Notes: Shown here is a 124-nucleotide sequence from Nannospalax galili, a member of the family "Small nucleolar RNA SNORA28". The family has 26 seed sequences and 922 matches in Rfam 15.1. The organism belongs to Nannospalax, within Eukaryota. Rfam links the family to the GO terms RNA processing and nucleolus. By type it is an H/ACA-box small nucleolar RNA. The base pairs follow the family's consensus structure, which was predicted with RNAfold.
RNA sequence: UAUUUAUACACAUACAUAAUUAAAUAUAAAAAUAAGUCAAUUCGUGCUUGCUAUAGCAAGAAAGUUUAAUCUAUUCCAGUGUUCUCUUCUCCAUGAGACACCCUGUUAUACAGGCUCAAACAAU
Numbered sequence: 001u002a003u004u005u006a007u008a009c010a011c012a013u014a015c016a017u018a019a020u021u022a023a024a025u026a027u028a029a030a031a032a033u034a035a036g037u038c039a040a041u042u043c044g045u046g047c048u049u050g051c052u053a054u055a056g057c058a059a060g061a062a063a064g065u066u067u068a069a070u071c072u073a074u075u076c077c078a079g080u081g082u083u084c085u086c087u088u089c090u091c092c093a094u095g096a097g098a099c100a101c102c103c104u105g106u107u108a109u110a111c112a113g114g115c116u117c118a119a120a121c122a123a124u
Stems, first nucleotide, its partner, number of pairs: 009046003014037002017034002020031002063116005072110003077105003085098004